[Rfam]
RNA sequence: GGUCGUACUGGUCGAUUAGGAAACUCAUCAAUGAAUAGAUAAAUUCCGAGACAAGCUUACCGUUUCCAAUGGCGGGUCACACCCUCCGGGGAUGCUUCAGGGCACAAGUGAAUUACAAAGGGGCGGAGCACUCAAAUCCUGUUACACGGAGUUUCGUCUUUAUCUUUCAGUACGAUUUUUAUA
Numbered sequence: 001g002g003u004c005g006u007a008c009u010g011g012u013c014g015a016u017u018a019g020g021a022a023a024c025u026c027a028u029c030a031a032u033g034a035a036u037a038g039a040u041a042a043a044u045u046c047c048g049a050g051a052c053a054a055g056c057u058u059a060c061c062g063u064u065u066c067c068a069a070u071g072g073c074g075g076g077u078c079a080c081a082c083c084c085u086c087c088g089g090g091g092a093u094g095c096u097u098c099a100g101g102g103c104a105c106a107a108g109u110g111a112a113u114u115a116c117a118a119a120g121g122g123g124c125g126g127a128g129c130a131c132u133c134a135a136a137u138c139c140u141g142u143u144a145c146a147c148g149g150a151g152u153u154u155c156g157u158c159u160u161u162a163u164c165u166u167u168c169a170g171u172a173c174g175a176u177u178u179u180u181a182u183a
Stems, first nucleotide, its partner, number of pairs: 055129003060126004065122003070117002077111004082091003094103003
Shown here is a 183-nucleotide sequence from Indolivaga macrotermitis, a member of the family "Bacteroidales-1 6S-Bacteroidales RNA suggested". Taxonomically the source falls in Indolivaga (Bacteria, Pseudomonadati, Bacteroidia, Bacteroidales). The family's consensus secondary structure is taken from published work. Bacteroidales-1 was first reported in a comparative genomics-based approach of genome and metagenome sequences from Weinberg et al. 2010 In a high-resolution transcriptome map study of Bacteroides thetaiotaomicron, Ryan et al. 2020 report this sRNA as 6S RNA homologue of Bacteroides, in the study they obtain evidence of small product RNAs (pRNAs) related to 6S function. Rfam classes the family as a small RNA. A search with the family's covariance model found it, with a score of 127 bits.